[Rfam]
A member of the RNA family "Fungal signal recognition particle RNA" from Colletotrichum trifolii, 275 nucleotides long. The family is grouped with related families in Rfam's "SRP clan". A search with the family's covariance model found it, with a score of 154 bits. The base pairs follow the family's consensus structure, which is taken from published work. It is annotated as a non-coding RNA gene. Taxonomically the source falls in Colletotrichum orbiculare species complex (Eukaryota, Pezizomycotina, leotiomyceta, sordariomyceta).

RNA sequence: CGGCUGUAAUGGUCAAGCGGUUGAAGGCUUUCGUUAUUCUUCUCCUGCUACCCCAUACACAUUGGAACCCCUCAGUGGCGCCCAGUGCGAAUGCUGCGGUGGUCGUCCACUCGUACGGGCAACCUACGAUUGCUGCGACGACCCUAAGCAAUGAAGAUGAUACUUGAGGGAGGUUUCACUCUGCAGAGGCAUCUUCACCGUCGCAUGGCGUGCUGGAUUACGAUCGCUGAGGGCUUGGGGUAGUAGUUGAAGAUGGAGAUGUCAACAGCCAAUUU
Numbered sequence: 001c002g003g004c005u006g007u008a009a010u011g012g013u014c015a016a017g018c019g020g021u022u023g024a025a026g027g028c029u030u031u032c033g034u035u036a037u038u039c040u041u042c043u044c045c046u047g048c049u050a051c052c053c054c055a056u057a058c059a060c061a062u063u064g065g066a067a068c069c070c071c072u073c074a075g076u077g078g079c080g081c082c083c084a085g086u087g088c089g090a091a092u093g094c095u096g097c098g099g100u101g102g103u104c105g106u107c108c109a110c111u112c113g114u115a116c117g118g119g120c121a122a123c124c125u126a127c128g129a130u131u132g133c134u135g136c137g138a139c140g141a142c143c144c145u146a147a148g149c150a151a152u153g154a155a156g157a158u159g160a161u162a163c164u165u166g167a168g169g170g171a172g173g174u175u176u177c178a179c180u181c182u183g184c185a186g187a188g189g190c191a192u193c194u195u196c197a198c199c200g201u202c203g204c205a206u207g208g209c210g211u212g213c214u215g216g217a218u219u220a221c222g223a224u225c226g227c228u229g230a231g232g233g234c235u236u237g238g239g240g241u242a243g244u245a246g247u248u249g250a251a252g253a254u255g256g257a258g259a260u261g262u263c264a265a266c267a268g269c270c271a272a273u274u275u
Stems, first nucleotide, its partner, number of pairs: 002014003016273001019270005026263003030259002034256003039252004045246008070233002073229005079222002082216008091206004096201004101143001102139005108132002111129005117124002144148001152197007163188003170181003